RNA sequence: ACGAUGGGUCGUGUUCCACCUUCGGGAUCACUAAAUUAUCCUGGGGAAAGUCCCCGGGCACUUGAUAGAGAUAUCCAGAGCAUAAAGCUCUGCUUCAUUCUUUACAUACUUCCAUCAAAGCUGGGAUUUUAUAUGAGCUGGGAAGGUAGAAGAAGUGAGACUGCCAUAUCAUAGUUAAAUGUGGAAGCUCCCGUUUCGGAGUAACUCAAUGGGGAUUACACCGACACGUCG
Numbered sequence: 001a002c003g004a005u006g007g008g009u010c011g012u013g014u015u016c017c018a019c020c021u022u023c024g025g026g027a028u029c030a031c032u033a034a035a036u037u038a039u040c041c042u043g044g045g046g047a048a049a050g051u052c053c054c055c056g057g058g059c060a061c062u063u064g065a066u067a068g069a070g071a072u073a074u075c076c077a078g079a080g081c082a083u084a085a086a087g088c089u090c091u092g093c094u095u096c097a098u099u100c101u102u103u104a105c106a107u108a109c110u111u112c113c114a115u116c117a118a119a120g121c122u123g124g125g126a127u128u129u130u131a132u133a134u135g136a137g138c139u140g141g142g143a144a145g146g147u148a149g150a151a152g153a154a155g156u157g158a159g160a161c162u163g164c165c166a167u168a169u170c171a172u173a174g175u176u177a178a179a180u181g182u183g184g185a186a187g188c189u190c191c192c193g194u195u196u197c198g199g200a201g202u203a204a205c206u207c208a209a210u211g212g213g214g215a216u217u218a219c220a221c222c223g224a225c226a227c228g229u230c231g
Base pairs, nucleotide, nucleotide: 002231003230004229005228006227008225009224010223011222014186015185016184017183018182019181022044023043024042025041026040027039028038048217049216052214053213054212055211064075065074066073067072076092077091078090079089080088081087094154095153096152101149102148109145110144111143112142113140114139116137124132126130188201189200190199191198

The family of this 231-nucleotide RNA from Folsomia candida is "RNase MRP". It scores 92 bits against the family's covariance model. It is annotated as a ribozyme. RNase MRP is an enzymatically active ribonucleoprotein with two distinct roles in eukaryotes.